[Rfam]
RNA sequence: CCUGUGGACAGCCAUAGCAAACUGUAGUAGCGAGUAAGCGGCGAGGCAGAGCUGGUUGAAACAGGAA
Numbered sequence: 001c002c003u004g005u006g007g008a009c010a011g012c013c014a015u016a017g018c019a020a021a022c023u024g025u026a027g028u029a030g031c032g033a034g035u036a037a038g039c040g041g042c043g044a045g046g047c048a049g050a051g052c053u054g055g056u057u058g059a060a061a062c063a064g065g066a067a
Stems, first nucleotide, its partner, number of pairs: 001065005009054004022049003030042002034039001